Rfam assigns this 85-nucleotide sequence from Trichechus manatus to the family "mir-2114 microRNA precursor family". The match comes from Rfam's covariance-model search (97 bits). The base pairs follow the family's consensus structure, which was predicted with RNAalifold.
RNA sequence: GGCCUCCAUGCUCCUAAUCCCUUCCUUGAAGAGGUCGGAUAAGUCACAUGACGAGUCUCAAGCAAGGGACUUCGAGCUGGCGGCU
Dot-bracket structure: .(((.(((.(((...(.((((((.(((((.(.(.(((..............))).))))))).)))))).)...)))))).))).